[Rfam]
RNA sequence: UUUAUCAACUGACUAAGACACACACGUGUCGACACGUCGUUCUGGGUGCCUGAAGGCGCAAGAUUUUGCGACAGCAGAAUCGUGCCACGGGUGGGACGAUGGGGCGCGUGGAGGCUUAAC
Numbered sequence: 001u002u003u004a005u006c007a008a009c010u011g012a013c014u015a016a017g018a019c020a021c022a023c024a025c026g027u028g029u030c031g032a033c034a035c036g037u038c039g040u041u042c043u044g045g046g047u048g049c050c051u052g053a054a055g056g057c058g059c060a061a062g063a064u065u066u067u068g069c070g071a072c073a074g075c076a077g078a079a080u081c082g083u084g085c086c087a088c089g090g091g092u093g094g095g096a097c098g099a100u101g102g103g104g105c106g107c108g109u110g111g112a113g114g115c116u117u118a119a120c
Base pairs, nucleotide, nucleotide: 023110024109025108026107027106028105029104030103035101036100037099038098039097040096041095042094043093048092049091050090051089052088
Dot-bracket structure: ......................((((((((....(((((((((....(((((...................................)))))))))))))).))))))))..........
A member of the RNA family "t44 RNA" from gamma proteobacterium HdN1, 120 nucleotides long.
Lineage of the source: Bacteria > Pseudomonadati > Pseudomonadota > Gammaproteobacteria.
The match comes from Rfam's covariance-model search (71 bits).